[Rfam]
RNA sequence: UGAACCGAGGCGGGAGAGUCCCGACCGAAAGCCAUGGCCGGGCGCCGAAGGAGCAAUUCUCCCCAGAAUCUCUCAGGCCCCGUUACCGCCCCGGUGAG
Number, nucleotide and partner (000 for none) at each position: 001u000002g000003a000004a000005c000006c093007g092008a000009g090010g089011c088012g087013g086014g000015a000016g000017a000018g000019u000020c042021c041022c040023g039024a000025c000026c000027g000028a000029a000030a000031g000032c000033c000034a000035u000036g000037g000038c000039c023040g022041g021042g020043c000044g078045c077046c076047g074048a073049a000050g000051g072052a071053g070054c000055a000056a000057u065058u000059c000060u000061c000062c000063c000064c000065a057066g000067a000068a000069u000070c053071u052072c051073u048074c047075a000076g046077g045078c044079c000080c000081c000082g000083u000084u000085a000086c013087c012088g011089c010090c009091c000092c007093g006094g000095u000096g000097a000098g000
Record summary: The family of this 98-nucleotide sequence from Nocardioides sp. PD653 is "Glycine riboswitch aptamer". Its family is annotated with glycine biosynthetic process in the Gene Ontology. From the family's description: This family represents the bacterial glycine riboswitch.